RNA sequence: UGCCUAGCAAUCGUCCGCGUGACGCACUAUAUGGGUUGGUGCCGCCUUCGGGCGACUAUGGUGAUAAACGGCACGUGGAAUAAGCGUUGUGGACCCGGGGGCAGUGCCCGGCGCCUCCACCAAACCAUCCCGCCUUAUCAGCGGGACGUUGGGGGCGAAACAGGCUCGACGCGCGCGGUAAAGACGUGUCCUUUGCCCGGCAUUGUACCGCCGUUAUCGGGCUAAAUCACAAGUGCCAACGAUAAUGGUCGCGAGACCAUGGCGCUCGCUGCCUAGAGAUAGGUAAGCGCCGUCCGGGGGGAACGGGGCAACAGAAUCCCCCCACC
Numbered sequence: 001u002g003c004c005u006a007g008c009a010a011u012c013g014u015c016c017g018c019g020u021g022a023c024g025c026a027c028u029a030u031a032u033g034g035g036u037u038g039g040u041g042c043c044g045c046c047u048u049c050g051g052g053c054g055a056c057u058a059u060g061g062u063g064a065u066a067a068a069c070g071g072c073a074c075g076u077g078g079a080a081u082a083a084g085c086g087u088u089g090u091g092g093a094c095c096c097g098g099g100g101g102c103a104g105u106g107c108c109c110g111g112c113g114c115c116u117c118c119a120c121c122a123a124a125c126c127a128u129c130c131c132g133c134c135u136u137a138u139c140a141g142c143g144g145g146a147c148g149u150u151g152g153g154g155g156c157g158a159a160a161c162a163g164g165c166u167c168g169a170c171g172c173g174c175g176c177g178g179u180a181a182a183g184a185c186g187u188g189u190c191c192u193u194u195g196c197c198c199g200g201c202a203u204u205g206u207a208c209c210g211c212c213g214u215u216a217u218c219g220g221g222c223u224a225a226a227u228c229a230c231a232a233g234u235g236c237c238a239a240c241g242a243u244a245a246u247g248g249u250c251g252c253g254a255g256a257c258c259a260u261g262g263c264g265c266u267c268g269c270u271g272c273c274u275a276g277a278g279a280u281a282g283g284u285a286a287g288c289g290c291c292g293u294c295c296g297g298g299g300g301g302a303a304c305g306g307g308g309c310a311a312c313a314g315a316a317u318c319c320c321c322c323c324a325c326c
Base pairs, nucleotide, nucleotide: 041056043054044053045052060197061196062195063194064193070190071189072188073187074186075185076184085175086174087173089172090171091170095111096110097109098108099107112157113156114155115154116153117152118151198213199212200211201210203224205222208220209219290306291305292304293303296323297322298321299320300319301318
RNA: Alphaproteobacteria transfer-messenger RNA
Organism: Muricoccus roseus